Rfam assigns this 74-nucleotide RNA sequence from Caenorhabditis bovis to the family "mir-50 microRNA precursor family".
A search with the family's covariance model found it, with a score of 77 bits.
The family is grouped with related families in Rfam's "mir-50 clan".
[Rfam]
RNA sequence: CGGGCGCUGAUAUGUCUGGUAUUCUUGGGUUCAACAUCUUGACGAACCAGUGUAUUAGACAUAUCGUCGACCGG
Numbered sequence: 001c002g003g004g005c006g007c008u009g010a011u012a013u014g015u016c017u018g019g020u021a022u023u024c025u026u027g028g029g030u031u032c033a034a035c036a037u038c039u040u041g042a043c044g045a046a047c048c049a050g051u052g053u054a055u056u057a058g059a060c061a062u063a064u065c066g067u068c069g070a071c072c073g074g
Base pairs, nucleotide, nucleotide: 008066009065010064011063012062013061014060015059016058017057018056019055020054021053022052028048029047030046031045
The family has 7 seed sequences and 65 matches in Rfam 15.1. On this family, see Zisoulis et al., Nat Struct Mol Biol 2010: "Comprehensive discovery of endogenous Argonaute binding sites in Caenorhabditis elegans". Rfam links the family to the GO terms RISC complex and miRNA-mediated post-transcriptional gene silencing. NCBI's taxonomy places the organism under Eukaryota, Opisthokonta, Rhabditida, Rhabditidae, Caenorhabditis.